[Rfam]
RNA: Bacterial RNase P class A
RNA sequence: CGAGCAGGUUACUCUAUCGCUUUGCAAACUUGUUUUGUAAAGAGGAAAGUCCGGACACCAUAGUGUAGCAUAGCGGGUAAUUCCCGUCCGUUGUAAAACGAGGACAAGUGCAGCAGAAAGUAUGUACAGGUAAUGCUGUAGUGAAACCAGGUAAACUCUAUGCGGUGCAACGUCAUGUAAAUUAGCGUUAUAAGGGUACACGCCCAAGCUAAAGGGUAGGCGGUUUGAGCUUUUAGGUAACUAAAAGCCUAGAUAAAUGAUAGAGGAGCUACUUGUUGGCUUUACAGAAUCCGGCUUAUGACCUGCUCUUUUU
Numbered sequence: 001c002g003a004g005c006a007g008g009u010u011a012c013u014c015u016a017u018c019g020c021u022u023u024g025c026a027a028a029c030u031u032g033u034u035u036u037g038u039a040a041a042g043a044g045g046a047a048a049g050u051c052c053g054g055a056c057a058c059c060a061u062a063g064u065g066u067a068g069c070a071u072a073g074c075g076g077g078u079a080a081u082u083c084c085c086g087u088c089c090g091u092u093g094u095a096a097a098a099c100g101a102g103g104a105c106a107a108g109u110g111c112a113g114c115a116g117a118a119a120g121u122a123u124g125u126a127c128a129g130g131u132a133a134u135g136c137u138g139u140a141g142u143g144a145a146a147c148c149a150g151g152u153a154a155a156c157u158c159u160a161u162g163c164g165g166u167g168c169a170a171c172g173u174c175a176u177g178u179a180a181a182u183u184a185g186c187g188u189u190a191u192a193a194g195g196g197u198a199c200a201c202g203c204c205c206a207a208g209c210u211a212a213a214g215g216g217u218a219g220g221c222g223g224u225u226u227g228a229g230c231u232u233u234u235a236g237g238u239a240a241c242u243a244a245a246a247g248c249c250u251a252g253a254u255a256a257a258u259g260a261u262a263g264a265g266g267a268g269c270u271a272c273u274u275g276u277u278g279g280c281u282u283u284a285c286a287g288a289a290u291c292c293g294g295c296u297u298a299u300g301a302c303c304u305g306c307u308c309u310u311u312u313u
Stems, first nucleotide, its partner, number of pairs: 002308010012265007020042009047297003051294005056167004063201004068163005073087005088102001089100004103158002108156002110152002125140005171222004182212005194204002229248008